[Rfam]
RNA sequence: AAAGAAAUAGGCCUUCUAUUCCUGGUUUUUCCCAGAGUUGGGAAAAGCUGGGUUGAGAAAGCAAAUAAAUAAAUAG
Numbered sequence: 001a002a003a004g005a006a007a008u009a010g011g012c013c014u015u016c017u018a019u020u021c022c023u024g025g026u027u028u029u030u031c032c033c034a035g036a037g038u039u040g041g042g043a044a045a046a047g048c049u050g051g052g053u054u055g056a057g058a059a060a061g062c063a064a065a066u067a068a069a070u071a072a073a074u075a076g
Base pairs, nucleotide, nucleotide: 014059015058016057017056021052022051023050024049025048029044030043031042032041033040034039

A member of the RNA family "mir-320 microRNA precursor family" from Otolemur garnettii, 76 nucleotides long.
Gene Ontology terms of the family: long-term synaptic potentiation, cellular response to glucose stimulus and RISC complex.
The match comes from Rfam's covariance-model search (72 bits).
NCBI's taxonomy places the organism under Eukaryota, Opisthokonta, Vertebrata, Amniota, Otolemur.